[Rfam]
RNA sequence: CCUUGGUCCGAGGGGUGUUCCUGAAAGGGAACUGAGAUAGCAGACGCUGAACCCUUAGAACCUGAUCCGGGUCAUGCCGGCGAAGGGACGGAAGCCUUUAGCCUA
Dot-bracket structure: ......((((((((.((((((......)))))......(((....))))..)))).....(((...((((......))))...)))..)))).............
Numbered sequence: 001c002c003u004u005g006g007u008c009c010g011a012g013g014g015g016u017g018u019u020c021c022u023g024a025a026a027g028g029g030a031a032c033u034g035a036g037a038u039a040g041c042a043g044a045c046g047c048u049g050a051a052c053c054c055u056u057a058g059a060a061c062c063u064g065a066u067c068c069g070g071g072u073c074a075u076g077c078c079g080g081c082g083a084a085g086g087g088a089c090g091g092a093a094g095c096c097u098u099u100a101g102c103c104u105a
Stems, first nucleotide, its partner, number of pairs: 007092004011055004016049001017032005039048003061086003067080004